[Rfam]
RNA sequence: CCUUUACUUUAACAUGGAGCCACUUGCUGUGAUUUUGUAAAAAUAAGUGCUUCCAUGUUUGAGUGUGG
Numbered sequence: 001c002c003u004u005u006a007c008u009u010u011a012a013c014a015u016g017g018a019g020c021c022a023c024u025u026g027c028u029g030u031g032a033u034u035u036u037g038u039a040a041a042a043a044u045a046a047g048u049g050c051u052u053c054c055a056u057g058u059u060u061g062a063g064u065g066u067g068g
Base pairs, nucleotide, nucleotide: 002068003067005065006064007063008062011059012058013057014056015055016054017053018052019051021049022048023047024046025045026044028042